[Rfam]
RNA sequence: AAAAAGGGUGCUUGUUCCUGGAUAGCACGCGAGUUCUACGAGCUCGUGGGGUAUGGCUAUCAAGACAUACCCAGCACGUAAUUUUUGUUCCCGUGGGGCUGUUUCUUGGCACUGACUCAGAGACGCCCCC
Number, nucleotide and partner (000 for none) at each position: 001a000002a000003a000004a000005a000006g000007g000008g077009u076010g075011c074012u073013u027014g026015u025016u024017c000018c000019u000020g000021g000022a000023u000024a016025g015026c014027a013028c048029g047030c046031g045032a044033g043034u042035u041036c000037u000038a000039c000040g000041a035042g034043c033044u032045c031046g030047u029048g028049g072050g071051g070052u069053a068054u067055g066056g000057c000058u000059a000060u000061c000062a000063a000064g000065a000066c055067a054068u053069a052070c051071c050072c049073a012074g011075c010076a009077c008078g000079u000080a000081a000082u000083u000084u000085u000086u000087g000088u000089u000090c000091c000092c000093g000094u000095g000096g128097g127098g126099c125100u000101g124102u123103u122104u121105c120106u000107u119108g118109g117110c114111a000112c000113u000114g110115a000116c000117u109118c108119a107120g105121a104122g103123a102124c101125g099126c098127c097128c096129c000130c000

The record is a 130-nucleotide RNA sequence from Phaedon cochleariae, which matches "U11 spliceosomal RNA" in Rfam. Its family is annotated with pre-mRNA 5'-splice site binding, U11 snRNP and mRNA 5'-splice site recognition in the Gene Ontology. The base pairs follow the family's consensus structure, which is taken from published work. By type it is a spliceosomal small nuclear RNA.